[Rfam]
RNA sequence: UUGGAUGCUGUGAUUAAAUUUAUAAUCUAUAUCGCUGAAUGCUAAUUUUGGCGUGGAAGACUCCUCAAUAGCUGGAUAGUAUAUGAGCAUC
Number, nucleotide and partner (000 for none) at each position: 001u000002u000003g091004g090005a000006u089007g088008c000009u000010g000011u000012g000013a000014u000015u000016a000017a000018a000019u000020u000021u000022a000023u000024a000025a000026u000027c000028u000029a000030u000031a000032u000033c000034g000035c000036u000037g000038a000039a000040u000041g000042c000043u000044a000045a000046u000047u000048u000049u000050g000051g000052c000053g000054u000055g000056g000057a000058a000059g000060a000061c000062u000063c000064c000065u000066c000067a000068a000069u000070a000071g000072c000073u000074g000075g000076a000077u000078a000079g000080u000081a000082u000083a000084u000085g000086a000087g000088c007089a006090u004091c003
Rfam assigns this 91-nucleotide RNA sequence from Chenopodium quinoa to the family "Small nucleolar RNA snoR8a". A reference for the family is Brown et al. (2001), "Multiple snoRNA gene clusters from Arabidopsis", RNA. The family's consensus secondary structure was predicted with WAR. It is annotated as a C/D-box small nucleolar RNA. NCBI's taxonomy places the organism under Eukaryota, Euphyllophyta, Mesangiospermae, eudicotyledons, Chenopodium.